This 86-nucleotide RNA sequence from Oxalobacteraceae bacterium CAVE-383 belongs to the Rfam family "sRNA-Xcc1". The family has 74 seed sequences and 421 matches in Rfam 15.1. On this family, see Chen et al., RNA Biol 2011: "sRNA-Xcc1, an integron-encoded transposon- and plasmid-transferred trans-acting sRNA, is under the positive control of the key virulence regulators HrpG and HrpX of Xanthomonas campestris pathovar campestris". It scores 54 bits against the family's covariance model. It is annotated as a small RNA.
RNA sequence: AGCCGGGUAGCGUGCAGUGAUAAAAGACCUUCGGGGAAAGCUGCAGACCGUUUACUUUCGGGGUUCAAGUACCUGGCCACCCUCAA
Numbered sequence: 001a002g003c004c005g006g007g008u009a010g011c012g013u014g015c016a017g018u019g020a021u022a023a024a025a026g027a028c029c030u031u032c033g034g035g036g037a038a039a040g041c042u043g044c045a046g047a048c049c050g051u052u053u054a055c056u057u058u059c060g061g062g063g064u065u066c067a068a069g070u071a072c073c074u075g076g077c078c079a080c081c082c083u084c085a086a
Base pairs, nucleotide, nucleotide: 002077003076004075005074006073007072008071009070013045014044015043016042018040028035029034048061049060050059